[Rfam]
RNA sequence: UAAUAACGGGUUCGUCACGUGUGUUAUCCGGACGGUAAUGAUAAACCGUUCUGCUCAGGUUCAGGCUCCGGCAGGCCUGACGGAUACUGAGUCCGAAUGCCGUUAUCAGAUGAGUGACCAGCUCACGCUUAAAGGCUGGUUUU
Numbered sequence: 001u002a003a004u005a006a007c008g009g010g011u012u013c014g015u016c017a018c019g020u021g022u023g024u025u026a027u028c029c030g031g032a033c034g035g036u037a038a039u040g041a042u043a044a045a046c047c048g049u050u051c052u053g054c055u056c057a058g059g060u061u062c063a064g065g066c067u068c069c070g071g072c073a074g075g076c077c078u079g080a081c082g083g084a085u086a087c088u089g090a091g092u093c094c095g096a097a098u099g100c101c102g103u104u105a106u107c108a109g110a111u112g113a114g115u116g117a118c119c120a121g122c123u124c125a126c127g128c129u130u131a132a133a134g135g136c137u138g139g140u141u142u143u
Stems, first nucleotide, its partner, number of pairs: 025112004030107002048077001050075005058067003080103004116141003120137003